[Rfam]
RNA sequence: GGUUGCAAGUUUGAAGCCAUAGUAGAAGCGCUCACAGCAUGGCCUGUCUGAUUCCAACAAAUCUGCGAAUUCUGUU
Numbered sequence: 001g002g003u004u005g006c007a008a009g010u011u012u013g014a015a016g017c018c019a020u021a022g023u024a025g026a027a028g029c030g031c032u033c034a035c036a037g038c039a040u041g042g043c044c045u046g047u048c049u050g051a052u053u054c055c056a057a058c059a060a061a062u063c064u065g066c067g068a069a070u071u072c073u074g075u076u
Stems, first nucleotide, its partner, number of pairs: 013044001016043003021076007028040001030038001048065001050063004

A member of the RNA family "Mammalian CPEB3 ribozyme" from Alligator sinensis, 76 nucleotides long.
The match comes from Rfam's covariance-model search (40 bits).